[Rfam]
RNA sequence: ACAGGACUGGCCUUGGCCGGUGGCUUUUCCGGGCGCCUAUCCCCCGGCCAAUC
Number, nucleotide and partner (000 for none) at each position: 001a000002c000003a000004g000005g000006a021007c020008u019009g018010g017011c016012c000013u000014u000015g000016g011017c010018c009019g008020g007021u006022g000023g000024c000025u000026u000027u000028u000029c047030c046031g045032g044033g043034c000035g000036c000037c000038u000039a000040u000041c000042c000043c033044c032045c031046g030047g029048c000049c000050a000051a000052u000053c000